Shown here is a 206-nucleotide RNA from Pipistrellus kuhlii, a member of the family "Small nucleolar RNA SNORA73 family". U17 (SNORA73A and SNORA73B) also known as E1 belongs to the H/ACA class of small nucleolar RNAs (snoRNAs). Vertebrate U17 is intron-encoded and ranges in length from 200-230 nucleotides, longer than most snoRNAs. It is one of the most abundant snoRNAs in human cells and is essential for the cleavage of pre-rRNA within the 5' external transcribed spacer (ETS). This cleavage leads to the formation of 18S rRNA. Regions of the U17 RNA are complementary to rRNA and act as guides for RNA/RNA interactions, although these regions do not seem to be well conserved between organisms. Lineage of the source: Eukaryota > Sarcopterygii > Dipnotetrapodomorpha > Tetrapoda > Pipistrellus. Rfam classes the family as an H/ACA-box small nucleolar RNA. For this family Rfam cites "5'ETS rRNA processing facilitated by four small RNAs: U14, E3, U17, and U3" (Enright et al., RNA, 1996). Rfam links the family to the GO terms nucleolus and RNA processing.
RNA sequence: CCAACAUGGUUAACUCCAGGGGGUCACUCUUCCUGGAGCUCUGAUCAGGUGGCAUCAAGGGGCAUAAGGCUGUGCCCCAUGAUGUACAGUCCCUUGCCACAACACUGGAGGGAAAGCUGGGUCUUGAGUCUGUGCCUGCACAUUCAUACAGCUUCUCAGAGUCCGGUGGGCAAUGCCAGAGGAGACAAACCAUGCAGGAAACAUAU
Number, nucleotide and partner (000 for none) at each position: 001c108002c107003a106004a000005c000006a000007u102008g046009g045010u044011u043012a042013a000014c038015u037016c036017c000018a000019g030020g029021g028022g027023g000024u000025c000026a000027c022028u021029c020030u019031u000032c000033c000034u000035g000036g016037a015038g014039c000040u000041c000042u012043g011044a010045u009046c008047a000048g000049g100050u099051g098052g097053c000054a000055u000056c000057a000058a000059g092060g091061g090062g087063c000064a085065u084066a083067a080068g000069g000070c000071u000072g000073u000074g000075c000076c000077c000078c000079a000080u067081g000082a000083u066084g065085u064086a000087c062088a000089g000090u061091c060092c059093c000094u000095u000096g000097c052098c051099a050100c049101a000102a007103c000104a000105c000106u003107g002108g001109a000110g000111g000112g000113a000114a000115a000116g000117c000118u000119g000120g000121g000122u000123c000124u000125u000126g000127a000128g000129u000130c000131u000132g000133u000134g000135c198136c197137u196138g195139c194140a193141c000142a000143u000144u000145c000146a000147u000148a000149c000150a000151g000152c184153u183154u182155c181156u180157c179158a000159g000160a000161g171162u170163c169164c168165g000166g000167u000168g164169g163170g162171c161172a000173a000174u000175g000176c000177c000178a000179g157180a156181g155182g154183a153184g152185a000186c000187a000188a000189a000190c000191c000192a000193u140194g139195c138196a137197g136198g135199a000200a000201a000202c000203a000204u000205a000206u000